Fungal signal recognition particle RNA: a 262-nucleotide RNA from Didymella heteroderae. Lineage of the source: Eukaryota > Opisthokonta > Pleosporomycetidae > Pleosporales > Didymella. For this family Rfam cites "Towards the structure of the mammalian signal recognition particle" (Wild et al., Curr Opin Struct Biol, 2002). Its family is annotated with SRP-dependent cotranslational protein targeting to membrane, signal sequence recognition, signal recognition particle, plasma membrane targeting and signal recognition particle, endoplasmic reticulum targeting in the Gene Ontology.

Nucleotides: 262
Base pairs, nucleotide, nucleotide: 002014003013004012019259020258021257022256023255026252027251029249030248031247032246033245034243035242036241041238042237043236044235045234046233048231049230050229051228052227053226054225062223063222064221066219067218068217070215071214072213073212075207076206077205078204079203080201081200082199084196085195086194087193088192089191090190091189092188094135096133097132098131100130101129102128105123106122107121108120109119111118112117136140144187145186146185147184148183149182150181155178156177157176162171163170164169
Number, partner (000 for none) and nucleotide at each position: 001000u002014a003013c004012c005000u006000g007000u008000a009000a010000u011000g012004g013003g014002u015000c016000u017000u018000c019259a020258u021257c022256a023255g024000a025000a026252g027251g028000u029249u030248c031247a032246c033245c034243g035242u036241u037000a038000u039000c040000c041238a042237c043236g044235c045234a046233c047000a048231c049230c050229u051228u052227u053226c054225a055000g056000u057000g058000c059000a060000c061000a062223c063222c064221u065000u066219g067218g068217c069000a070215g071214g072213a073212g074000c075207c076206c077205a078204g079203u080201u081200c082199g083000a084196g085195u086194c087193u088192u089191g090190u091189g092188g093000u094135g095000u096133u097132c098131g099000c100130u101129u102128c103000a104000c105123u106122c107121c108120c109119u110000u111118a112117g113000g114000u115000a116000a117112c118111u119109a120108g121107g122106g123105a124000u125000g126000c127000u128102g129101g130100a131098c132097g133096a134000a135094c136140c137000u138000a139000a140136g141000c142000a143000a144187u145186g146185a147184a148183u149182g150181c151000a152000a153000c154000c155178g156177a157176c158000g159000a160000g161000u162171g163170a164169a165000g166000a167000a168000a169164u170163u171162c172000a173000g174000c175000a176157g177156u178155c179000a180000g181150g182149u183148a184147u185146u186145c187144a188092c189091c190090a191089u192088g193087a194086g195085a196084c197000g198000g199082c200081g201080g202000c203079g204078c205077u206076g207075g208000a209000a210000u211000a212073c213072u214071c215070c216000c217068g218067c219066c220000c221064g222063g223062g224000u225054u226053g227052a228051a229050g230049g231048g232000c233046g234045u235044g236043u237042g238041u239000u240000g241036g242035g243034c244000u245033g246032g247031u248030g249029g250000c251027u252026c253000g254000a255023c256022u257021g258020a259019u260000a261000u262000u